A member of the RNA family "Fluoride riboswitch aptamer (crcB RNA motif)" from Bifidobacterium scardovii, 72 nucleotides long. NCBI's taxonomy places the organism under Bacteria, Bacillati, Actinomycetes, Bifidobacteriales, Bifidobacterium.
[Rfam]
RNA sequence: UUGGGAUGCGGCGAUGGGACCCGCCUGAAACUUGUUUUCGAACCGCAUCACGCUGAUAGUUCCUGCACACGA
Numbered sequence: 001u002u003g004g005g006a007u008g009c010g011g012c013g014a015u016g017g018g019a020c021c022c023g024c025c026u027g028a029a030a031c032u033u034g035u036u037u038u039c040g041a042a043c044c045g046c047a048u049c050a051c052g053c054u055g056a057u058a059g060u061u062c063c064u065g066c067a068c069a070c071g072a
Base pairs, nucleotide, nucleotide: 010025011024012023013022016063017062018061019060020059045053046052

Rfam links the family to the GO terms positive regulation of gene expression and response to fluoride.
The base pairs follow the family's consensus structure, which is taken from published work.
It scores 37 bits against the family's covariance model.